About this RNA
A member of the RNA family "mir-1 microRNA precursor family" from Microcaecilia unicolor, 76 nucleotides long. From the family's description: This family represents the microRNA (miRNA) mir-1 family. miRNAs are transcribed as ~70nt precursors (modelled here) and subsequently processed by the Dicer enzyme to give a ~22nt product. In this case the mature sequence comes from the 3' arm of the precursor. The extents of the hairpin precursors are not generally known and are estimated based on hairpin prediction. The products are thought to have regulatory roles through complementarity to mRNA. The involvement of Dicer in miRNA processing suggests a relationship with the phenomenon of RNA interference. miRNAs are numbered based on the sequence of the mature RNA. This family also contains the mir-206 from human, which appears to be related to mir-1. The match comes from Rfam's covariance-model search (49 bits).
RNA sequence: UCCAAUAUAGCAUCCUUCGUUACAUUUUUUAUAUAUCAUUCAGUGUAAAAAUUGUAACGAAGGAUGCUAUAUUGGA
Numbered sequence: 001u002c003c004a005a006u007a008u009a010g011c012a013u014c015c016u017u018c019g020u021u022a023c024a025u026u027u028u029u030u031a032u033a034u035a036u037c038a039u040u041c042a043g044u045g046u047a048a049a050a051a052u053u054g055u056a057a058c059g060a061a062g063g064a065u066g067c068u069a070u071a072u073u074g075g076a
Stems, first nucleotide, its partner, number of pairs: 007070018027050005